Background:
FMN riboswitch aptamer (RFN element): a 135-nucleotide sequence from Microlunatus endophyticus.
[Rfam]
RNA sequence: ACAAGGUUCCGGGGUCGGUGAAAGUCCGAACCGGCGGUGACAGUCCGCGACCCGGAUCUGGUCCCAGGAUCAGAUCCGGUUGAUGUGGUGGAAUUCCACGACCGACGGUUAAAGUCCGGAUGGGAGGAACCUAGG
Numbered sequence: 001a002c003a004a005g006g007u008u009c010c011g012g013g014g015u016c017g018g019u020g021a022a023a024g025u026c027c028g029a030a031c032c033g034g035c036g037g038u039g040a041c042a043g044u045c046c047g048c049g050a051c052c053c054g055g056a057u058c059u060g061g062u063c064c065c066a067g068g069a070u071c072a073g074a075u076c077c078g079g080u081u082g083a084u085g086u087g088g089u090g091g092a093a094u095u096c097c098a099c100g101a102c103c104g105a106c107g108g109u110u111a112a113a114g115u116c117c118g119g120a121u122g123g124g125a126g127g128a129a130c131c132u133a134g135g
Stems, first nucleotide, its partner, number of pairs: 004132007016028003030115002032104002034048004043102002052079006084100005106118003
Dot-bracket structure: ...(((((((.....(((.......))).[[((((((.....[[))))...((((((................))))))....(((((.......)))))]])).(((.....]]))).......)))))))...
About this RNA:
The source organism's lineage runs through Bacteria, Bacillati, Propionibacteriales, Propionibacteriaceae and Microlunatus.